A member of the RNA family "Small nucleolar RNA U3" from Etheostoma spectabile, 214 nucleotides long. Clan: U3 clan. Gene Ontology terms of the family: RNA processing and nucleolus. The organism belongs to Oligocephalus, within Eukaryota.
RNA sequence: AAGACUAGACUCUCAGGGAUCAUUUCUAAAGUUUCUGACUUGAGAAAUGGGUUUCUAAAGUGUUUGGUCUCGCUGACCACAAUGAUGAGUCGUGAUAUUUCUUUCUGAGCAUAAAGCUGACAGAGAGUAAUGAUUCACUUCAUAUACUCUCUGUCAUUGAUGAUUGGUCUUUGACUCUUUAUGAAGGAUUGAGAAAGGGAAUAUGAUGAGUGAU
Numbered sequence: 001a002a003g004a005c006u007a008g009a010c011u012c013u014c015a016g017g018g019a020u021c022a023u024u025u026c027u028a029a030a031g032u033u034u035c036u037g038a039c040u041u042g043a044g045a046a047a048u049g050g051g052u053u054u055c056u057a058a059a060g061u062g063u064u065u066g067g068u069c070u071c072g073c074u075g076a077c078c079a080c081a082a083u084g085a086u087g088a089g090u091c092g093u094g095a096u097a098u099u100u101c102u103u104u105c106u107g108a109g110c111a112u113a114a115a116g117c118u119g120a121c122a123g124a125g126a127g128u129a130a131u132g133a134u135u136c137a138c139u140u141c142a143u144a145u146a147c148u149c150u151c152u153g154u155c156a157u158u159g160a161u162g163a164u165u166g167g168u169c170u171u172u173g174a175c176u177c178u179u180u181a182u183g184a185a186g187g188a189u190u191g192a193g194a195a196a197g198g199g200a201a202u203a204u205g206a207u208g209a210g211u212g213a214u
Stems, first nucleotide, its partner, number of pairs: 001041003005037001007034005015027004050065002055062001076214001078212003095204010106193001110166002119155004125149004130143004170191001172188001176184002
It scores 116 bits against the family's covariance model. The literature on the family includes a 1997 paper in Nucleic Acids Res by Zwieb, "The uRNA database". The family's RNA type in Rfam is C/D-box small nucleolar RNA. Rfam describes the family as follows. Small nucleolar RNAs (snoRNAs) are involved in the processing and modification of rRNA in the nucleolus.